[Rfam]
Record summary:
A member of the RNA family "Plastid-psbA-4 3UTR RNA" from Angelica gigas, 52 nucleotides long. Its Rfam clan is "Plastid-psbA 3UTR RNA clan". Lineage of the source: Eukaryota > Viridiplantae > Apiaceae > Selineae > Angelica. The literature on the family includes a 2023 paper in Plant Commun by Richter et al., "Retrograde signaling in plants: A critical review focusing on the GUN pathway and beyond".
RNA sequence: AAAAAAGCAAUACCGCCCUCUUGUUCUAUCAAGAGGGCGGUAUUUCUUCUUU
Number, nucleotide and partner (000 for none) at each position: 001a052002a051003a050004a000005a048006a047007g046008c000009a044010a043011u000012a000013c000014c000015g038016c037017c000018c035019u034020c033021u032022u031023g030024u000025u000026c000027u000028a000029u000030c023031a022032a021033g020034a019035g018036g000037g016038c015039g000040g000041u000042a000043u010044u009045u000046c007047u006048u005049c000050u003051u002052u001